This 103-nucleotide sequence from Phyllobacterium zundukense belongs to the Rfam family "Glycine riboswitch aptamer". On this family, see Mandal et al., Science 2004: "A glycine-dependent riboswitch that uses cooperative binding to control gene expression".
RNA sequence: AUAGCCUGCAUGGGAGAGAUCGGCCGUUGCAACUUGGCAGCGAUCGGCGCCGACGGAGCAACCCCCCAGGAAACUCUCAGGCAAAAGGGACCAUGCAGCUGAA
Numbered sequence: 001a002u003a004g005c006c007u008g009c010a011u012g013g014g015a016g017a018g019a020u021c022g023g024c025c026g027u028u029g030c031a032a033c034u035u036g037g038c039a040g041c042g043a044u045c046g047g048c049g050c051c052g053a054c055g056g057a058g059c060a061a062c063c064c065c066c067c068a069g070g071a072a073a074c075u076c077u078c079a080g081g082c083a084a085a086a087g088g089g090a091c092c093a094u095g096c097a098g099c100u101g102a103a
Stems, first nucleotide, its partner, number of pairs: 006098008020047004049082003052078002056076003062069001

Taxonomically the source falls in Phyllobacterium (Bacteria, Pseudomonadati, Hyphomicrobiales, Phyllobacteriaceae). It scores 61 bits against the family's covariance model.